Rfam assigns this 100-nucleotide sequence from Paenibacillus sp. FSL H7-0737 to the family "Purine riboswitch aptamer".
The family's consensus secondary structure is taken from published work.
The organism belongs to Paenibacillus, within Bacteria.
Gene Ontology term of the family: purine nucleobase biosynthetic process.

RNA sequence: AGCACAACAACAUAAUUCUUUCGUAUAUUUCCGGGAAUUGGCCUGGAAGUUUCUACGAGGUCACCGUAAUGACCUGGCUACGAUUAAGAAGAGCAGAGCA
Numbered sequence: 001a002g003c004a005c006a007a008c009a010a011c012a013u014a015a016u017u018c019u020u021u022c023g024u025a026u027a028u029u030u031c032c033g034g035g036a037a038u039u040g041g042c043c044u045g046g047a048a049g050u051u052u053c054u055a056c057g058a059g060g061u062c063a064c065c066g067u068a069a070u071g072a073c074c075u076g077g078c079u080a081c082g083a084u085u086a087a088g089a090a091g092a093g094c095a096g097a098g099c100a
Base pairs, nucleotide, nucleotide: 021083022082023081024080025079029048030047031046032045033044034043035042058075059074060073061072062071063070